Record summary:
The family of this 86-nucleotide RNA from Medicago truncatula is "MIR2617 microRNA precursor family". It scores 80 bits against the family's covariance model. The organism belongs to Medicago, within Eukaryota. The base pairs follow the family's consensus structure, which was predicted with RNAalifold.
RNA sequence: UUGCAAUGUAGCAUGCCCGUUUGGUGCGUAACUUUGAUGAAUAAUUGCUAUUUAAUUACUUUUGGGUAACGGGGUGUUACAGUCUU
Number, nucleotide and partner (000 for none) at each position: 001u000002u000003g085004c000005a083006a000007u081008g080009u079010a078011g077012c076013a075014u074015g000016c073017c072018c071019g070020u069021u068022u000023g000024g000025u000026g000027c000028g000029u000030a000031a000032c000033u000034u000035u000036g000037a000038u000039g000040a000041a000042u000043a000044a000045u000046u000047g000048c000049u000050a000051u000052u000053u000054a000055a000056u000057u000058a000059c000060u000061u000062u000063u000064g000065g000066g000067u000068a021069a020070c019071g018072g017073g016074g014075u013076g012077u011078u010079a009080c008081a007082g000083u005084c000085u003086u000